[Rfam]
The record is a 411-nucleotide RNA sequence, which matches "Giant, ornate, lake- and Lactobacillales-derived (GOLLD) RNA" in Rfam.
RNA sequence: GAGAGUAGUUGAGUAUUUCGUUGUUCAAAAGAUAACGAAGCCCGUGGCGGACCACUACUUUCACAAUCCACAACACAAAAACUUAUGACACUGAUUAAGUCAAAUUAAUUAUUAAGAAAUAAGCAAAAGUGUCCGUCAGGUAAUAGUGAAAGGUGACUACAUAGUAAUGAGCCGUUCAUUGCACGAAAGGAUCGCAAGUCUGAUCGUAUUCUUACCAAACACCUCUAAUCCCGCAAGGACUAGUUGGGGAGGCAUCCUCGAAGAGAGUCGAGUAAUAAGAGAGUAACUAUUAUCUCAAGGAGUGGUACACCUAAAAGACCGUCACUGAGAAAUACUUCUCAAAAGGAAGUGGAUAGGAGUAGAAACAAUAAUGACUCUAAAGGUUCUCACAAACAGGUGUAAUCUCAGCCU
Numbered sequence: 001g002a003g004a005g006u007a008g009u010u011g012a013g014u015a016u017u018u019c020g021u022u023g024u025u026c027a028a029a030a031g032a033u034a035a036c037g038a039a040g041c042c043c044g045u046g047g048c049g050g051a052c053c054a055c056u057a058c059u060u061u062c063a064c065a066a067u068c069c070a071c072a073a074c075a076c077a078a079a080a081a082c083u084u085a086u087g088a089c090a091c092u093g094a095u096u097a098a099g100u101c102a103a104a105u106u107a108a109u110u111a112u113u114a115a116g117a118a119a120u121a122a123g124c125a126a127a128a129g130u131g132u133c134c135g136u137c138a139g140g141u142a143a144u145a146g147u148g149a150a151a152g153g154u155g156a157c158u159a160c161a162u163a164g165u166a167a168u169g170a171g172c173c174g175u176u177c178a179u180u181g182c183a184c185g186a187a188a189g190g191a192u193c194g195c196a197a198g199u200c201u202g203a204u205c206g207u208a209u210u211c212u213u214a215c216c217a218a219a220c221a222c223c224u225c226u227a228a229u230c231c232c233g234c235a236a237g238g239a240c241u242a243g244u245u246g247g248g249g250a251g252g253c254a255u256c257c258u259c260g261a262a263g264a265g266a267g268u269c270g271a272g273u274a275a276u277a278a279g280a281g282a283g284u285a286a287c288u289a290u291u292a293u294c295u296c297a298a299g300g301a302g303u304g305g306u307a308c309a310c311c312u313a314a315a316a317g318a319c320c321g322u323c324a325c326u327g328a329g330a331a332a333u334a335c336u337u338c339u340c341a342a343a344a345g346g347a348a349g350u351g352g353a354u355a356g357g358a359g360u361a362g363a364a365a366c367a368a369u370a371a372u373g374a375c376u377c378u379a380a381a382g383g384u385u386c387u388c389a390c391a392a393a394c395a396g397g398u399g400u401a402a403u404c405u406c407a408g409c410c411u
Base pairs, nucleotide, nucleotide: 001062002061003060004059005058006057007056008055009054010044011043013041014040017039018038019037020036021035022034023033024032025031046137047136048135049134050133051132052131123195124194138295139294140293141292142291143290144289145288146287147286153325154324155323156322157321164182165181166180167179168178169177183207184206185205186204189201190200191199192198210280211279212278213277214276223265224264225263226262229239230238231237244261245260246259248257249256304320305319306318327388328387329386330385331384333351334350335349336348337347338346339345352404353403354402357377358376359375360374362372396410397409398408
Record summary:
The family's RNA type in Rfam is non-coding RNA gene. On this family, see Weinberg et al., Nature 2009: "Exceptional structured noncoding RNAs revealed by bacterial metagenome analysis".